RNA sequence: CGAGCCGGCCGGGCGGCCGCGAGGGAUCUCCCGAUCCCCCGAGGAACGUCCGGGCUCCACACGGCAGGGUGGUGGGUAACACCCACCCGGGGUGACCCGCGGGACAGUGCCACAGAAAACAGACCGCCGGGCCUCUUCGGAGCGCCCGGUAAGGGUGAAACGGUGGUGUAAGAGACCACCAGUGCCCAGGGUGACCUGGGCAGCUAGGUAAACCCCACCCGGAGCAAGGUCAAGAGGAGCCGUCACGGCUCUGCGCGGACGCUUGAGGGCUGCCCGCCCGAGUCCGCGGGUAGACCGCACGAGCCCGCCGGCAACGGCGGGCCUAGAUGGAUGGCCGCCUCCCCGCGGCCCGCAAGGGCCCCGGGAGACAGAACCCGGCGUAUAAGCCGACUCGUCCG
Numbered sequence: 001c002g003a004g005c006c007g008g009c010c011g012g013g014c015g016g017c018c019g020c021g022a023g024g025g026a027u028c029u030c031c032c033g034a035u036c037c038c039c040c041g042a043g044g045a046a047c048g049u050c051c052g053g054g055c056u057c058c059a060c061a062c063g064g065c066a067g068g069g070u071g072g073u074g075g076g077u078a079a080c081a082c083c084c085a086c087c088c089g090g091g092g093u094g095a096c097c098c099g100c101g102g103g104a105c106a107g108u109g110c111c112a113c114a115g116a117a118a119a120c121a122g123a124c125c126g127c128c129g130g131g132c133c134u135c136u137u138c139g140g141a142g143c144g145c146c147c148g149g150u151a152a153g154g155g156u157g158a159a160a161c162g163g164u165g166g167u168g169u170a171a172g173a174g175a176c177c178a179c180c181a182g183u184g185c186c187c188a189g190g191g192u193g194a195c196c197u198g199g200g201c202a203g204c205u206a207g208g209u210a211a212a213c214c215c216c217a218c219c220c221g222g223a224g225c226a227a228g229g230u231c232a233a234g235a236g237g238a239g240c241c242g243u244c245a246c247g248g249c250u251c252u253g254c255g256c257g258g259a260c261g262c263u264u265g266a267g268g269g270c271u272g273c274c275c276g277c278c279c280g281a282g283u284c285c286g287c288g289g290g291u292a293g294a295c296c297g298c299a300c301g302a303g304c305c306c307g308c309c310g311g312c313a314a315c316g317g318c319g320g321g322c323c324u325a326g327a328u329g330g331a332u333g334g335c336c337g338c339c340u341c342c343c344c345g346c347g348g349c350c351c352g353c354a355a356g357g358g359c360c361c362c363g364g365g366a367g368a369c370a371g372a373a374c375c376c377g378g379c380g381u382a383u384a385a386g387c388c389g390a391c392u393c394g395u396c397c398g
Stems, first nucleotide, its partner, number of pairs: 001394004006389004011383001012339007020041002023038006046381003050378005055224004063274003067220005072086005087101001088099004102215002107213002109209003124154002126150007134142001162180006182204001183202008228296004255287006267279004303322008